The record is a 54-nucleotide RNA from Salvelinus namaycush, which matches "UnaL2 LINE 3' element" in Rfam. Rfam describes the family as follows. The eel long interspersed element (LINE) UnaL2 and its partner short interspersed element (SINE) share a conserved 3' tail containing a stem-loop that is critical for their retrotransposition. Presumably, the first step of retrotransposition is the recognition of their 3' tails by UnaL2-encoded reverse transcriptase. The solution structure of a 17-nucleotide RNA derived from the 3' tail of UnaL2 was determined by NMR.
RNA sequence: GAAUGUACUAACUGUAAGUUGCUCUGGAUAAGAGCGUCUACUAAAUGACUAAAA
Numbered sequence: 001g002a003a004u005g006u007a008c009u010a011a012c013u014g015u016a017a018g019u020u021g022c023u024c025u026g027g028a029u030a031a032g033a034g035c036g037u038c039u040a041c042u043a044a045a046u047g048a049c050u051a052a053a054a
Stems, first nucleotide, its partner, number of pairs: 013043001014041003020036006